[Rfam]
RNA sequence: AUGACGAUGGACGGGAGAGACUGCAGGCAGGUGAUGUCGUCUGCGGCACCGAAGGAGCAAGCCGUUAUUGUCUUGCCGGCAUAACGAACAAUCUCUCAGGUAAAAGUACCGUCAUCCGACG
Numbered sequence: 001a002u003g004a005c006g007a008u009g010g011a012c013g014g015g016a017g018a019g020a021c022u023g024c025a026g027g028c029a030g031g032u033g034a035u036g037u038c039g040u041c042u043g044c045g046g047c048a049c050c051g052a053a054g055g056a057g058c059a060a061g062c063c064g065u066u067a068u069u070g071u072c073u074u075g076c077c078g079g080c081a082u083a084a085c086g087a088a089c090a091a092u093c094u095c096u097c098a099g100g101u102a103a104a105a106g107u108a109c110c111g112u113c114a115u116c117c118g119a120c121g
Stems, first nucleotide, its partner, number of pairs: 006116005012111003021046008048101003051097002055095003061089001
This 121-nucleotide RNA from Paenibacillus sp. 7541 belongs to the Rfam family "Glycine riboswitch aptamer". NCBI's taxonomy places the organism under Bacteria, Bacillota, Bacilli, Caryophanales, Paenibacillus. It scores 53 bits against the family's covariance model.